[Rfam]
RNA sequence: GGCGAGCGGUGAUGAUGCUCGACAGUCUGUCGUUUUUCCUGAUGUCAACUGACGGUUUUAAGUCACUACCUCAUCUGAGCUCGAG
Number, nucleotide and partner (000 for none) at each position: 001g000002g000003c083004g082005a081006g080007c079008g000009g000010u000011g000012a000013u000014g000015a000016u000017g000018c000019u000020c000021g000022a000023c000024a000025g000026u000027c000028u000029g000030u000031c000032g000033u000034u000035u000036u000037u000038c000039c000040u000041g000042a000043u000044g000045u000046c000047a000048a000049c000050u000051g000052a000053c000054g000055g000056u000057u000058u000059u000060a000061a000062g000063u000064c000065a000066c000067u000068a000069c000070c000071u000072c000073a000074u000075c000076u000077g000078a000079g007080c006081u005082c004083g003084a000085g000

This 85-nucleotide RNA sequence from Salarias fasciatus belongs to the Rfam family "Small nucleolar RNA SNORD11B". Rfam classes the family as a C/D-box small nucleolar RNA. For this family Rfam cites "snoSeeker: an advanced computational package for screening of guide and orphan snoRNA genes in the human genome" (Yang et al., Nucleic Acids Res, 2006). Gene Ontology terms of the family: RNA processing and nucleolus. Rfam 15.1 lists 733 matches to the family in 632 species. Pairs were carried over by alignment from the consensus structure, which was predicted with WAR. NCBI's taxonomy places the organism under Eukaryota, Metazoa, Chordata, Ovalentaria, Salarias.